[Rfam]
RNA: BsrF
Organism: Neobacillus cucumis
RNA sequence: GCGAUGAGCUGAAUUGUGUAAGUCGAGAAACAUUCCUUUAUGGAGCACACAAUGUGGAGUGUGGUUUUUCGCCUCAAUACGCAAGACGCCUGUAUAUACAGGCGUC
Numbered sequence: 001g002c003g004a005u006g007a008g009c010u011g012a013a014u015u016g017u018g019u020a021a022g023u024c025g026a027g028a029a030a031c032a033u034u035c036c037u038u039u040a041u042g043g044a045g046c047a048c049a050c051a052a053u054g055u056g057g058a059g060u061g062u063g064g065u066u067u068u069u070c071g072c073c074u075c076a077a078u079a080c081g082c083a084a085g086a087c088g089c090c091u092g093u094a095u096a097u098a099c100a101g102g103c104g105u106c
Base pairs, nucleotide, nucleotide: 014077015076016075018073024071025070026069027068028067029066030065031064034043035042046063047062049060050059085106086105087104088103089102090101091100092099093098
Dot-bracket structure: .............(((.(.....((((((((..((......))..((.((........)).)))))))))).).))).......(((((((((....)))))))))